[Rfam]
RNA: S4-Clostridia ribosomal protein leader
Organism: bacterium 1XD42-54
RNA sequence: GAAAGGUCACUUCGGUGGCUGGGCGGCUAUGACUGCCCCAAUUAGA
Numbered sequence: 001g002a003a004a005g006g007u008c009a010c011u012u013c014g015g016u017g018g019c020u021g022g023g024c025g026g027c028u029a030u031g032a033c034u035g036c037c038c039c040a041a042u043u044a045g046a
Stems, first nucleotide, its partner, number of pairs: 005020006021038006